[Rfam]
RNA sequence: UUAGGUUUCUUGCCAUUCCUUUAAAAGGCAAGUGGUGCGGAUGGAGGUUACUCCCGCCGAGUUUCCAAUUUUCUCGUAAUCAAAAUUGGUGGCGAGCCUGAGU
Numbered sequence: 001u002u003a004g005g006u007u008u009c010u011u012g013c014c015a016u017u018c019c020u021u022u023a024a025a026a027g028g029c030a031a032g033u034g035g036u037g038c039g040g041a042u043g044g045a046g047g048u049u050a051c052u053c054c055c056g057c058c059g060a061g062u063u064u065c066c067a068a069u070u071u072u073c074u075c076g077u078a079a080u081c082a083a084a085a086u087u088g089g090u091g092g093c094g095a096g097c098c099u100g101a102g103u
Stems, first nucleotide, its partner, number of pairs: 009032006016026001042056003046052001058076004065089006
About this RNA
The record is a 103-nucleotide RNA sequence, which matches "wcaG RNA" in Rfam. Pairs were carried over by alignment from the consensus structure, which is taken from published work. It is annotated as a cis-regulatory element.